[Rfam]
RNA sequence: UCGGUCCCGGUUCACGUGCGGAUGUCCAUGUCCGCCGACCCGGUGCC
Number, nucleotide and partner (000 for none) at each position: 001u000002c000003g047004g046005u045006c000007c043008c042009g041010g040011u000012u000013c000014a000015c037016g036017u000018g035019c034020g033021g032022a031023u030024g000025u000026c000027c000028a000029u000030g023031u022032c021033c020034g019035c018036c016037g015038a000039c000040c010041c009042g008043g007044u000045g005046c004047c003